[Rfam]
RNA sequence: GAUAUGCGUUGAAGCGAGAGGUUGCCGCGUUUUCGCGGGUAAUUUUCGUGGAGUAUGUCCGAUUUUAAACCGGGCGGUAC
Numbered sequence: 001g002a003u004a005u006g007c008g009u010u011g012a013a014g015c016g017a018g019a020g021g022u023u024g025c026c027g028c029g030u031u032u033u034c035g036c037g038g039g040u041a042a043u044u045u046u047c048g049u050g051g052a053g054u055a056u057g058u059c060c061g062a063u064u065u066u067a068a069a070c071c072g073g074g075c076g077g078u079a080c
Stems, first nucleotide, its partner, number of pairs: 014049003018046004025038005056079004063074003